RNA sequence: GAAACAUUUCGACCGUCGGUCUACCGAGGAAUUUCAUCCGCUCGGUGGAAGAUCUUCCCAAUGUCGU
Number, nucleotide and partner (000 for none) at each position: 001g000002a000003a000004a064005c063006a062007u000008u000009u000010c000011g057012a056013c000014c000015g053016u052017c051018g000019g000020u049021c048022u047023a046024c045025c044026g043027a042028g041029g000030a000031a000032u000033u000034u000035c000036a000037u000038c000039c000040g000041c028042u027043c026044g025045g024046u023047g022048g021049a020050a000051g017052a016053u015054c000055u000056u012057c011058c000059c000060a000061a000062u006063g005064u004065c000066g000067u000
RNA: mir-2774 microRNA precursor family
Organism: Bombyx mori